[Rfam]
RNA: Bacterial large subunit ribosomal RNA, nucleotides 1878 to 2241
Organism: Rhodococcus (subgen. Prescottella) equi
RNA sequence: CGAGAUAACUGUGGUUAAGGAACUCGGCAAAAUGCCCCCGUAACUUCGGGAGAAGGGGGGCCUCGUCUGGUGACGGAACUUGCUUCCUGAGCUGGGUGGGGCCGCAGAGACCAGAGAGAAGCGACUGUUUACUAAAAACACAGGUCCGUGCGAAGUCGUAAGACGAUGUAUACGGACUGACGCCUGCCCGGUGCUGGAAGGUUAAGAGGACCGGUUAGCCAGUAAUGGCGAAGCUGAGAAUUUAAGCCCCAGUAAACGGCGGUGGUAACUAUAACCAUCCUAAGGUAGCGAAAUUCCUUGUCGGGUAAGUUCCGACCUGCACGAAUGGCGUAACGACUUCUCUGCUGUCUCAACCACAGACUCG
Numbered sequence: 001c002g003a004g005a006u007a008a009c010u011g012u013g014g015u016u017a018a019g020g021a022a023c024u025c026g027g028c029a030a031a032a033u034g035c036c037c038c039c040g041u042a043a044c045u046u047c048g049g050g051a052g053a054a055g056g057g058g059g060g061c062c063u064c065g066u067c068u069g070g071u072g073a074c075g076g077a078a079c080u081u082g083c084u085u086c087c088u089g090a091g092c093u094g095g096g097u098g099g100g101g102c103c104g105c106a107g108a109g110a111c112c113a114g115a116g117a118g119a120a121g122c123g124a125c126u127g128u129u130u131a132c133u134a135a136a137a138a139c140a141c142a143g144g145u146c147c148g149u150g151c152g153a154a155g156u157c158g159u160a161a162g163a164c165g166a167u168g169u170a171u172a173c174g175g176a177c178u179g180a181c182g183c184c185u186g187c188c189c190g191g192u193g194c195u196g197g198a199a200g201g202u203u204a205a206g207a208g209g210a211c212c213g214g215u216u217a218g219c220c221a222g223u224a225a226u227g228g229c230g231a232a233g234c235u236g237a238g239a240a241u242u243u244a245a246g247c248c249c250c251a252g253u254a255a256a257c258g259g260c261g262g263u264g265g266u267a268a269c270u271a272u273a274a275c276c277a278u279c280c281u282a283a284g285g286u287a288g289c290g291a292a293a294u295u296c297c298u299u300g301u302c303g304g305g306u307a308a309g310u311u312c313c314g315a316c317c318u319g320c321a322c323g324a325a326u327g328g329c330g331u332a333a334c335g336a337c338u339u340c341u342c343u344g345c346u347g348u349c350u351c352a353a354c355c356a357c358a359g360a361c362u363c364g
Base pairs, nucleotide, nucleotide: 001364002363003362004361009359010358011357012356013355014354015353016352018350019349020348035059036058037057038056039055044049060102061101062100063099064098065097079095080094082092083091084090103107115343116342117341118340119339120338121337122335123334126140127139128138143178144177145176146175147174148173149172150171151168155164156163157162181330182329183328184327186260187259188258191257192256193253194252195251196250197249200248201247202246206242207241212236213235214234215233218229219228220227221226261279262278263277264276265275266274280284290317300316301315302314303313304312305311